[Rfam]
RNA sequence: UAGUGAGGUAGAGGCGCGAAGAUCAUGAAUACUCUAUUGGAGAACCGGUUAGUUCUAGGAUAAUAGAGGAAAGGGAGCUUCGCCGAAGUGCAUGCCUUUGUAACCGGAGGGCUGUGCUGGGUCUGCAGUGAAUAAUUGCAGAACUGUCAUCGCAGGAUAUUCCCGUUCUUGCGAUGGAGUACUAUCUCCACU
Numbered sequence: 001u002a003g004u005g006a007g008g009u010a011g012a013g014g015c016g017c018g019a020a021g022a023u024c025a026u027g028a029a030u031a032c033u034c035u036a037u038u039g040g041a042g043a044a045c046c047g048g049u050u051a052g053u054u055c056u057a058g059g060a061u062a063a064u065a066g067a068g069g070a071a072a073g074g075g076a077g078c079u080u081c082g083c084c085g086a087a088g089u090g091c092a093u094g095c096c097u098u099u100g101u102a103a104c105c106g107g108a109g110g111g112c113u114g115u116g117c118u119g120g121g122u123c124u125g126c127a128g129u130g131a132a133u134a135a136u137u138g139c140a141g142a143a144c145u146g147u148c149a150u151c152g153c154a155g156g157a158u159a160u161u162c163c164c165g166u167u168c169u170u171g172c173g174a175u176g177g178a179g180u181a182c183u184a185u186c187u188c189c190a191c192u
Stems, first nucleotide, its partner, number of pairs: 006187006016083006023076002032068008087118006095110004119145002122142008147177011